[Rfam]
RNA sequence: GUAAAGAGACCUACUGAAAGCAGGUUUUUACUAUACAGAAUUCGCCUUACGCUCAGAGUCGCCAAACCUAGUGAGCGUAGGGCUUUUU
Numbered sequence: 001g002u003a004a005a006g007a008g009a010c011c012u013a014c015u016g017a018a019a020g021c022a023g024g025u026u027u028u029u030a031c032u033a034u035a036c037a038g039a040a041u042u043c044g045c046c047u048u049a050c051g052c053u054c055a056g057a058g059u060c061g062c063c064a065a066a067c068c069u070a071g072u073g074a075g076c077g078u079a080g081g082g083c084u085u086u087u088u
Stems, first nucleotide, its partner, number of pairs: 005029008044083011056069001058067002
Rfam assigns this 88-nucleotide RNA sequence from Streptococcus sp. sy004 to the family "S. pyogenes small RNA 779816". For this family Rfam cites "RNA sequencing uncovers antisense RNAs and novel small RNAs in Streptococcus pyogenes" (Le Rhun et al., RNA Biol, 2016). Taxonomically the source falls in Streptococcus (Bacteria, Bacillati, Lactobacillales, Streptococcaceae). It scores 84 bits against the family's covariance model. Pairs were carried over by alignment from the consensus structure, which was predicted with RNAalifold.